Rfam assigns this 55-nucleotide RNA to the family "Whalefall-1 RNA". Rfam classes the family as a small RNA.
RNA sequence: GUGUCCCUCCUUGGGGAGGGACAGAGACAAGCGUGUUUUGUCUCAGGGUGAGGAC
Number, nucleotide and partner (000 for none) at each position: 001g000002u000003g000004u021005c020006c019007c018008u017009c016010c015011u000012u000013g000014g000015g010016g009017a008018g007019g006020g005021a004022c000023a000024g044025a043026g042027a041028c040029a039030a037031g036032c000033g000034u000035g000036u031037u030038u000039u029040g028041u027042c026043u025044c024045a000046g000047g000048g000049u000050g000051a000052g000053g000054a000055c000